Selenocysteine insertion sequence 1: a 66-nucleotide sequence from Cavia porcellus.
The source organism's lineage runs through Eukaryota, Deuterostomia, Theria, Eutheria and Cavia.
Rfam describes the family as follows. The incorporation of selenocysteine into a protein sequence is directed by an in-frame UGA codon (usually a stop codon) within the coding region of the mRNA. Selenoprotein mRNAs contain a conserved secondary structure in the 3' UTR that is required for the distinction of UGA stop from UGA selenocysteine.
It scores 38 bits against the family's covariance model.
RNA sequence: CUUGCAUUAAUGAGGACUAUACAGAAAACCUUCCUAAGGAUUUGUAUAGAUCUGAUGUAUGGCAAA
Numbered sequence: 001c002u003u004g005c006a007u008u009a010a011u012g013a014g015g016a017c018u019a020u021a022c023a024g025a026a027a028a029c030c031u032u033c034c035u036a037a038g039g040a041u042u043u044g045u046a047u048a049g050a051u052c053u054g055a056u057g058u059a060u061g062g063c064a065a066a
Stems, first nucleotide, its partner, number of pairs: 002065004015052002017049008030039003